RNA sequence: UGUUGCCAACUGCCUGUAACAGCAACUCCAUGUGGAAUGUGUGUGUGUGAAACUCCAGUGGAGCUGCUGUUACUUGCAGAGUGUGA
Numbered sequence: 001u002g003u004u005g006c007c008a009a010c011u012g013c014c015u016g017u018a019a020c021a022g023c024a025a026c027u028c029c030a031u032g033u034g035g036a037a038u039g040u041g042u043g044u045g046u047g048u049g050a051a052a053c054u055c056c057a058g059u060g061g062a063g064c065u066g067c068u069g070u071u072a073c074u075u076g077c078a079g080a081g082u083g084u085g086a
Stems, first nucleotide, its partner, number of pairs: 010079003016073008026063006033057003

Shown here is an 86-nucleotide RNA from Bagarius yarrelli, a member of the family "mir-194 microRNA precursor family". Its family is annotated with miRNA-mediated post-transcriptional gene silencing and RISC complex in the Gene Ontology. The family has 46 seed sequences and 936 matches in Rfam 15.1. The literature on the family includes a 2003 paper in Mol Cancer Res by Michael et al., "Reduced accumulation of specific microRNAs in colorectal neoplasia".